[Rfam]
Notes:
This 50-nucleotide RNA sequence from Vibrio mimicus belongs to the Rfam family "malK-II RNA". By type it is a cis-regulatory element. Pairs were carried over by alignment from the consensus structure, which is taken from published work. The source organism's lineage runs through Bacteria, Gammaproteobacteria, Vibrionales, Vibrionaceae and Vibrio mimicus.
RNA sequence: AUUCCUACUGUUAUUGCGUGCACAACAAUUCAUAUAAUGAGCCGCGAUAA
Numbered sequence: 001a002u003u004c005c006u007a008c009u010g011u012u013a014u015u016g017c018g019u020g021c022a023c024a025a026c027a028a029u030u031c032a033u034a035u036a037a038u039g040a041g042c043c044g045c046g047a048u049a050a
Base pairs, nucleotide, nucleotide: 011050012049013048014047015046016045017044018043